[Rfam]
RNA: Flavo-1 RNA
Organism: Chryseobacterium sp. Leaf180
RNA sequence: UUCUAGCCCCGAUGGAAACGGCAUCCUUUUUUUUUGCAUUGGCUUGAAAAAAGCGUAGGCAAAAAAAGAUACAGUAGACAGCGGGAUUAAGC
Numbered sequence: 001u002u003c004u005a006g007c008c009c010c011g012a013u014g015g016a017a018a019c020g021g022c023a024u025c026c027u028u029u030u031u032u033u034u035u036g037c038a039u040u041g042g043c044u045u046g047a048a049a050a051a052a053g054c055g056u057a058g059g060c061a062a063a064a065a066a067a068g069a070u071a072c073a074g075u076a077g078a079c080a081g082c083g084g085g086a087u088u089a090a091g092c
Stems, first nucleotide, its partner, number of pairs: 009084003013080002018075002023070003029065005037059001